Shown here is a 133-nucleotide RNA, a member of the family "Group II catalytic intron D1-D4-7". The family has 244 seed sequences and 1,296 matches in Rfam 15.1. For this family Rfam cites "Control of branch-site choice by a group II intron" (Chu et al., EMBO J, 2001). It is one of the family's seed sequences.
[Rfam]
RNA sequence: CCUAUUGUUCCAUCAAUAGUAGCCUGAAGAGGCGUACGUGACUGGCAACGGUCGGGUGCGAAGCCCUCUUGACAACGACGUUCCAACCUAAGCAUCAUAGGCGAAGAAUGUCAAAGCUGACUGAUAUGAGUAA
Number, nucleotide and partner (000 for none) at each position: 001c000002c019003u018004a017005u016006u015007g014008u000009u000010c000011c000012a000013u000014c007015a006016a005017u004018a003019g002020u000021a000022g000023c000024c000025u000026g000027a000028a069029g068030a067031g066032g065033c060034g059035u058036a057037c056038g000039u054040g053041a052042c051043u050044g049045g000046c000047a000048a000049c044050g043051g042052u041053c040054g039055g000056g037057u036058g035059c034060g033061a000062a000063g000064c000065c032066c031067u030068c029069u028070u000071g000072a000073c000074a000075a000076c000077g000078a000079c000080g000081u000082u000083c000084c000085a000086a000087c000088c000089u104090a000091a000092g000093c100094a000095u000096c000097a000098u000099a000100g093101g000102c000103g000104a089105a000106g000107a000108a127109u126110g125111u124112c123113a122114a000115a000116g000117c000118u000119g000120a000121c000122u113123g112124a111125u110126a109127u108128g000129a000130g000131u000132a000133a000